[Rfam]
RNA sequence: CUACAAGUUCAAGGUCAGAGCAGAAGUGCUCAUGGUGCAGCCCUUUCAGAUUCCAAUAAAUCUGCAAAUUCUGUU
Numbered sequence: 001c002u003a004c005a006a007g008u009u010c011a012a013g014g015u016c017a018g019a020g021c022a023g024a025a026g027u028g029c030u031c032a033u034g035g036u037g038c039a040g041c042c043c044u045u046u047c048a049g050a051u052u053c054c055a056a057u058a059a060a061u062c063u064g065c066a067a068a069u070u071c072u073g074u075u
Stems, first nucleotide, its partner, number of pairs: 013042003019075007026038003047064006
The record is a 75-nucleotide RNA sequence from Alligator sinensis, which matches "Mammalian CPEB3 ribozyme" in Rfam. The match comes from Rfam's covariance-model search (38 bits).